A member of the RNA family "SAH (S-adenosyl-L-homocysteine) riboswitch aptamer" from Pseudomonas sp. THAF187a, 93 nucleotides long. The organism belongs to Pseudomonas, within Bacteria. The match comes from Rfam's covariance-model search (54 bits). For this family Rfam cites "Riboswitches that sense S-adenosylhomocysteine and activate genes involved in coenzyme recycling" (Wang et al., Mol Cell, 2008).

[Rfam]
RNA sequence: CCGGUCGAGGGGCGCUGCAGCAAACCCGCAUCACGCGGCUUUGUCAGGCUCGCCCGGGGCGUUAUCCAAACGCAUCAACGGCGCCCAUUCGCA
Dot-bracket structure: .(((.(((............((((.((((.....)))).))))......))).))).....................................